[Rfam]
RNA: Pseudomonas sRNA CrcZ
RNA sequence: AUAACAACAAUAAAAACCAAGCAAACAUAAUAAAAAUAAAAUCUGACUACACACACAAUAAAAAUAAAACGUGCGAGUCGUAGCAAACUGAUUUUUUUGGAGAAUGUGUCUCCCCCUCUGCGAACAGGAAGUUCGAUUGGACAGAGAACAAUAAAAGUUGCCUGAGCAACCAGACAGUCCAAUGCCAAUGAUAGGCCUGAGCAGGAUAAUAAGCUUCCAAAGCAAUCCGUUUGUUUUUGGAUAACCCGGGAGGGUUGGUCACAGGGCGACACUGUCGCCUCUGCCUAACAAAAACAAAUGCUCGUAAUAAUAAAAAUAAAAAAUCUAUUAGGGGGAGUGAUCUACUCCCCUUGAGCUUUAUUUUGUUUUGCCCUCGGUUUUCUU
Number, nucleotide and partner (000 for none) at each position: 001a000002u000003a000004a000005c000006a000007a000008c000009a000010a000011u000012a000013a000014a000015a000016a000017c000018c000019a000020a000021g000022c000023a000024a000025a000026c000027a000028u000029a000030a000031u000032a000033a000034a000035a000036a000037u000038a000039a000040a000041a000042u000043c000044u080045g079046a000047c077048u076049a000050c075051a000052c000053a000054c000055a000056c000057a000058a000059u000060a000061a000062a000063a000064a000065u000066a000067a000068a000069a000070c000071g000072u000073g000074c000075g050076a048077g047078u000079c045080g044081u000082a000083g000084c000085a000086a000087a000088c000089u000090g000091a000092u000093u000094u000095u222096u221097u220098u219099g218100g000101a000102g000103a000104a000105u000106g000107u000108g214109u213110c000111u000112c000113c000114c000115c000116c000117u000118c000119u000120g000121c000122g000123a000124a000125c000126a000127g000128g000129a000130a000131g000132u000133u000134c000135g000136a183137u182138u181139g180140g179141a000142c000143a000144g000145a000146g000147a000148a000149c000150a000151a000152u000153a000154a000155a000156a000157g170158u169159u168160g167161c166162c000163u000164g000165a000166g161167c160168a159169a158170c157171c000172a000173g000174a000175c000176a000177g000178u000179c140180c139181a138182a137183u136184g000185c000186c000187a000188a000189u000190g000191a000192u000193a000194g000195g000196c000197c000198u000199g000200a000201g000202c000203a000204g000205g000206a000207u000208a000209a000210u000211a000212a000213g109214c108215u000216u000217c000218c099219a098220a097221a096222g095223c000224a000225a000226u000227c000228c000229g000230u000231u000232u000233g000234u000235u000236u000237u000238u000239g000240g256241a000242u000243a000244a255245c254246c253247c252248g000249g000250g000251a000252g247253g246254g245255u244256u240257g000258g000259u000260c000261a000262c000263a000264g000265g000266g000267c000268g000269a000270c000271a000272c000273u000274g000275u000276c000277g366278c365279c000280u000281c000282u000283g000284c000285c000286u000287a000288a000289c000290a000291a000292a000293a000294a000295c000296a000297a000298a000299u000300g000301c000302u000303c000304g000305u000306a000307a000308u000309a000310a000311u000312a000313a000314a000315a000316a000317u000318a000319a359320a358321a357322a000323a000324u000325c000326u000327a000328u000329u000330a000331g351332g350333g349334g348335g347336a346337g345338u344339g000340a000341u000342c000343u000344a338345c337346u336347c335348c334349c333350c332351u331352u000353g000354a000355g000356c000357u321358u320359u319360a000361u000362u000363u000364u000365g278366u277367u000368u000369u000370g000371c000372c000373c000374u000375c000376g000377g000378u000379u000380u000381u000382c000383u000384u000